This 71-nucleotide RNA from Danio rerio belongs to the Rfam family "mir-34 microRNA precursor family".
[Rfam]
RNA sequence: GGUCUGUAGGCAGUGUUGUUAGCUGAUUGUUUCAUAUGAACUAUAAUCACUAACCAUACUGCCAACACAAC
Numbered sequence: 001g002g003u004c005u006g007u008a009g010g011c012a013g014u015g016u017u018g019u020u021a022g023c024u025g026a027u028u029g030u031u032u033c034a035u036a037u038g039a040a041c042u043a044u045a046a047u048c049a050c051u052a053a054c055c056a057u058a059c060u061g062c063c064a065a066c067a068c069a070a071c
Base pairs, nucleotide, nucleotide: 003069005067006066009063010062012060013059014058015057016056018054019053020052021051022050024049025048026047027046028045029044030043
A reference for the family is Dostie et al. (2003), "Numerous microRNPs in neuronal cells containing novel microRNAs", RNA. About the family: Human mir-34a was discovered computationally and later experimentally verified. The mature sequence is excised from the 5' arm of the hairpin.